[Rfam]
Notes
This 248-nucleotide RNA sequence from Clostridium tetani belongs to the Rfam family "T-box leader". Uncharged tRNA acts as the effector for transcription antitermination of genes in the T-box leader family. T-boxes are found upstream of many aminoacyl-tRNA synthetase genes and some amino acid biosynthetic genes usually in Gram-positive bacteria. The anticodon of a specific tRNA base pairs to a specifier sequence within the T-box motif, and the NCCA acceptor tail of the tRNA base pairs to a conserved bulge in the T-box antiterminator hairpin. It scores 119 bits against the family's covariance model. Rfam classes the family as a cis-regulatory leader.
RNA sequence: AAAAAGACAGUGAUGGGAAGAGUAAGUGUAAAAGGUAAUUAUAGCGAGUCGAUGAUGGUGAAAGAUUGAUAUGAAUUUUAUACUGAAGAACAUCCCUGAGUCUCUAACCGAAAUCAAUAUAUUGAGAGUAGGCUUAGACGAAACCAGAUCGUUAAAGCUGGGAGUAUUGUUAGAUACUUUUAAAGAGGAGAGCCUUUUAUAGGCUAACCAGGGUGGUACCGCGAGAGUUUAAGCUUUUCGUCCCUUAG
Numbered sequence: 001a002a003a004a005a006g007a008c009a010g011u012g013a014u015g016g017g018a019a020g021a022g023u024a025a026g027u028g029u030a031a032a033a034g035g036u037a038a039u040u041a042u043a044g045c046g047a048g049u050c051g052a053u054g055a056u057g058g059u060g061a062a063a064g065a066u067u068g069a070u071a072u073g074a075a076u077u078u079u080a081u082a083c084u085g086a087a088g089a090a091c092a093u094c095c096c097u098g099a100g101u102c103u104c105u106a107a108c109c110g111a112a113a114u115c116a117a118u119a120u121a122u123u124g125a126g127a128g129u130a131g132g133c134u135u136a137g138a139c140g141a142a143a144c145c146a147g148a149u150c151g152u153u154a155a156a157g158c159u160g161g162g163a164g165u166a167u168u169g170u171u172a173g174a175u176a177c178u179u180u181u182a183a184a185g186a187g188g189a190g191a192g193c194c195u196u197u198u199a200u201a202g203g204c205u206a207a208c209c210a211g212g213g214u215g216g217u218a219c220c221g222c223g224a225g226a227g228u229u230u231a232a233g234c235u236u237u238u239c240g241u242c243c244c245u246u247a248g
Stems, first nucleotide, its partner, number of pairs: 007101002015096004025084006038072002048070006104137004109132001139151003191205005210245004221241007